[Rfam]
RNA sequence: GAUAGGUCUGCGUCGUUACUGUGAUUGGACACUGACGCAGAGUCAACUAGCCUUGUUCGAGCGGAUCUCCGCACGUCAAGCCAGGGUGGUCCGAGCCACGAGGGGGGAGGCUCGGGCCACCCAUU
Numbered sequence: 001g002a003u004a005g006g007u008c009u010g011c012g013u014c015g016u017u018a019c020u021g022u023g024a025u026u027g028g029a030c031a032c033u034g035a036c037g038c039a040g041a042g043u044c045a046a047c048u049a050g051c052c053u054u055g056u057u058c059g060a061g062c063g064g065a066u067c068u069c070c071g072c073a074c075g076u077c078a079a080g081c082c083a084g085g086g087u088g089g090u091c092c093g094a095g096c097c098a099c100g101a102g103g104g105g106g107g108a109g110g111c112u113c114g115g116g117c118c119a120c121c122c123a124u125u
Stems, first nucleotide, its partner, number of pairs: 001014003015051004021032003033045004058075002061072004076083001085121013099106001
Streptomyces RNA 3920: a 125-nucleotide RNA sequence from Actinacidiphila oryziradicis. The literature on the family includes a 2011 paper in RNA Biol by Vockenhuber et al., "Deep sequencing-based identification of small non-coding RNAs in Streptomyces coelicolor". A search with the family's covariance model found it, with a score of 115 bits. The family's RNA type in Rfam is small RNA.